[Rfam]
RNA sequence: UGAUACAAGGGGCAAAAGUCAGAAAUCGUUCCUGCUUGCAGGAUAAGAGUUCUGACUUAUUGACCUGCUCACACAUGAGGAAGUAGUGAUUUCCCUUGGAAAUCAACGGAUUCCGAAUGUGUGUAGAAUUGUGAAAGUUGCGUAGCAACGGAACAAUUCGUGUAUCA
Number, nucleotide and partner (000 for none) at each position: 001u167002g166003a165004u164005a163006c162007a161008a000009g000010g065011g064012g000013c062014a000015a000016a058017a057018g056019u055020c054021a053022g052023a051024a050025a000026u048027c047028g000029u045030u043031c042032c041033u040034g039035c000036u000037u000038g000039c034040a033041g032042g031043a030044u000045a029046a000047g027048a026049g000050u024051u023052c022053u021054g020055a019056c018057u017058u016059a000060u000061u000062g013063a000064c011065c010066u000067g000068c000069u000070c123071a122072c121073a120074c119075a118076u117077g000078a000079g114080g113081a112082a111083g000084u000085a000086g107087u106088g104089a103090u102091u101092u100093c000094c000095c000096u000097u000098g000099g000100a092101a091102a090103u089104c088105a000106a087107c086108g000109g000110a000111u082112u081113c080114c079115g000116a000117a076118u075119g074120u073121g072122u071123g070124u000125a000126g159127a158128a157129u156130u155131g154132u153133g000134a000135a000136a000137g149138u148139u147140g146141c000142g000143u000144a000145g000146c140147a139148a138149c137150g000151g000152a000153a132154c131155a130156a129157u128158u127159c126160g000161u007162g006163u005164a004165u003166c002167a001
The family of this 167-nucleotide RNA sequence from Roseburia zhanii is "Clostridiales-1 RNA". NCBI's taxonomy places the organism under Bacteria, Bacillati, Bacillota, Lachnospirales, Roseburia. A search with the family's covariance model found it, with a score of 116 bits. Rfam classes the family as a small RNA.